[Rfam]
RNA: Small nucleolar RNA SNORA29
RNA sequence: UUUCCCAUCUGACUACCACAUUUUCUCCUAAUAAUAGAUUUUAGUGGCUAUGCUUGUGGGACAGAUUAAAAUUGCCAUGAUCUGAAGAGGGAAGGGUUUUUCAGUGUCCUCCUUCUGUGUGUAAUGGCUGAACAGAAAAUU
Numbered sequence: 001u002u003u004c005c006c007a008u009c010u011g012a013c014u015a016c017c018a019c020a021u022u023u024u025c026u027c028c029u030a031a032u033a034a035u036a037g038a039u040u041u042u043a044g045u046g047g048c049u050a051u052g053c054u055u056g057u058g059g060g061a062c063a064g065a066u067u068a069a070a071a072u073u074g075c076c077a078u079g080a081u082c083u084g085a086a087g088a089g090g091g092a093a094g095g096g097u098u099u100u101u102c103a104g105u106g107u108c109c110u111c112c113u114u115c116u117g118u119g120u121g122u123a124a125u126g127g128c129u130g131a132a133c134a135g136a137a138a139a140u141u
Base pairs, nucleotide, nucleotide: 004060005059006058007057016047017046018045019044074128075127076126077125093116094115095114096113